[Rfam]
RNA sequence: GCCCGGGACCACCGGAGAGGUGGCAGAGUGGUUGAAUGUACCUGACUCGAAAUCAGGCAGGCGUUUAUAGCGCCUCGGGGGUUCGAAUCCCCCCCUCUCCGCCAGAAUCGACAAGGGGCUGCGUCCUGGACGCAGCCCUUUUUUGUGGGUUUUCGCGUACGUCCGGCCCGGCCGCACGAGGCGCGAGA
Numbered sequence: 001g002c003c004c005g006g007g008a009c010c011a012c013c014g015g016a017g018a019g020g021u022g023g024c025a026g027a028g029u030g031g032u033u034g035a036a037u038g039u040a041c042c043u044g045a046c047u048c049g050a051a052a053u054c055a056g057g058c059a060g061g062c063g064u065u066u067a068u069a070g071c072g073c074c075u076c077g078g079g080g081g082u083u084c085g086a087a088u089c090c091c092c093c094c095c096u097c098u099c100c101g102c103c104a105g106a107a108u109c110g111a112c113a114a115g116g117g118g119c120u121g122c123g124u125c126c127u128g129g130a131c132g133c134a135g136c137c138c139u140u141u142u143u144u145g146u147g148g149g150u151u152u153u154c155g156c157g158u159a160c161g162u163c164c165g166g167c168c169c170g171g172c173c174g175c176a177c178g179a180g181g182c183g184c185g186a187g188a
Stems, first nucleotide, its partner, number of pairs: 002078002005075003012026001014024001028071002033067007041057005090183001092181002095178001101112001103110001128173002131170002

The record is a 188-nucleotide RNA sequence from Luteimonas sp. FCS-9, which matches "Proteobacterial sRNA sX4" in Rfam. The match comes from Rfam's covariance-model search (88 bits). The organism belongs to Luteimonas, within Bacteria.